[Rfam]
RNA: MIR6152 microRNA precursor family
RNA sequence: UGGAUAGAUUAAUGUAUUCACGACGUGAAAUAGAGGAUUACACUGUUUUUAAAACGGAAAGUGAAUCAAUUAACAUAUAGACUCCU
Number, nucleotide and partner (000 for none) at each position: 001u000002g085003g084004a083005u000006a000007g000008a000009u080010u079011a070012a000013u068014g067015u000016a066017u065018u064019c063020a062021c061022g000023a000024c056025g055026u054027g049028a048029a047030a046031u045032a044033g043034a000035g000036g000037a000038u000039u000040a000041c000042a000043c033044u032045g031046u030047u029048u028049u027050u000051a000052a000053a000054a026055c025056g024057g000058a000059a000060a000061g021062u020063g019064a018065a017066u016067c014068a013069a000070u011071u000072a000073a000074c000075a000076u000077a000078u000079a010080g009081a000082c000083u004084c003085c002086u000